[Rfam]
RNA sequence: UUACCUUUCUCGGCCUUUUUGGGCUAACAUUGAGUGUAGUAUCUGUUAGUAUCUGUUUAAUAUCUGAUAUGUGGGUCAAUGGUACACACGCUAUUAACUCUUAUGUUUUGAGGGGAAAGGCUCAUCAAGGUAGCCUCGACCUUUGCGUGUUGCCUAAGCAUUGCAUAACUGCUUUGGCCUGGCGCAUCCCAC
Numbered sequence: 001u002u003a004c005c006u007u008u009c010u011c012g013g014c015c016u017u018u019u020u021g022g023g024c025u026a027a028c029a030u031u032g033a034g035u036g037u038a039g040u041a042u043c044u045g046u047u048a049g050u051a052u053c054u055g056u057u058u059a060a061u062a063u064c065u066g067a068u069a070u071g072u073g074g075g076u077c078a079a080u081g082g083u084a085c086a087c088a089c090g091c092u093a094u095u096a097a098c099u100c101u102u103a104u105g106u107u108u109u110g111a112g113g114g115g116a117a118a119g120g121c122u123c124a125u126c127a128a129g130g131u132a133g134c135c136u137c138g139a140c141c142u143u144u145g146c147g148u149g150u151u152g153c154c155u156a157a158g159c160a161u162u163g164c165a166u167a168a169c170u171g172c173u174u175u176g177g178c179c180u181g182g183c184g185c186a187u188c189c190c191a192c
Stems, first nucleotide, its partner, number of pairs: 008029001010027001012025004050069004055064001071087003075083003116144005122138001129135002147185006154176001156174004
RNA: U2 spliceosomal RNA
Organism: Capsicum baccatum